This 90-nucleotide sequence from Fuerstiella marisgermanici belongs to the Rfam family "Group II catalytic intron D1-D4-1". Lineage of the source: Bacteria > Planctomycetota > Planctomycetia > Planctomycetaceae > Fuerstiella. A search with the family's covariance model found it, with a score of 41 bits.

RNA sequence: GCGAUUCGUGGUCAACACGUAUGGUGAUCGACGGAAGUCAGCAGAGGUCGUAGUACUGUUUCGUCAUACGCCACUGACGACAAGAAGGAC
Number, nucleotide and partner (000 for none) at each position: 001g025002c024003g000004a022005u021006u000007c019008g018009u017010g016011g000012u000013c000014a000015a000016c010017a009018c008019g007020u000021a005022u004023g000024g002025u001026g000027a000028u000029c000030g000031a000032c000033g000034g000035a000036a000037g000038u045039c044040a000041g000042c000043a000044g039045a038046g000047g090048u089049c088050g000051u000052a000053g000054u000055a000056c000057u082058g081059u000060u000061u000062c000063g078064u077065c076066a000067u000068a000069c000070g000071c000072c000073a000074c000075u000076g065077a064078c063079g000080a000081c058082a057083a000084g000085a000086a000087g000088g049089a048090c047